[Rfam]
RNA sequence: GAGCGGGGUAGAGGCGCGGCGUAGCAAGAGUACUGUACCGGAGUUGGGAAGCGAGGAGGGUACGGGAAAGGGCUAGCCGCCGAAGUAGGUAGGCUACCCAGGCUUACCUGCUGGGCUGGUGCUGAAUAAGCACUAGACUGUCACUAUCCCGGGGAUAGUGGAGCGCUCCUCGCACG
Numbered sequence: 001g002a003g004c005g006g007g008g009u010a011g012a013g014g015c016g017c018g019g020c021g022u023a024g025c026a027a028g029a030g031u032a033c034u035g036u037a038c039c040g041g042a043g044u045u046g047g048g049a050a051g052c053g054a055g056g057a058g059g060g061u062a063c064g065g066g067a068a069a070g071g072g073c074u075a076g077c078c079g080c081c082g083a084a085g086u087a088g089g090u091a092g093g094c095u096a097c098c099c100a101g102g103c104u105u106a107c108c109u110g111c112u113g114g115g116c117u118g119g120u121g122c123u124g125a126a127u128a129a130g131c132a133c134u135a136g137a138c139u140g141u142c143a144c145u146a147u148c149c150c151g152g153g154g155a156u157a158g159u160g161g162a163g164c165g166c167u168c169c170u171c172g173c174a175c176g
Stems, first nucleotide, its partner, number of pairs: 006171003010167002016080005022075004033065007084112012113139002116136008141161007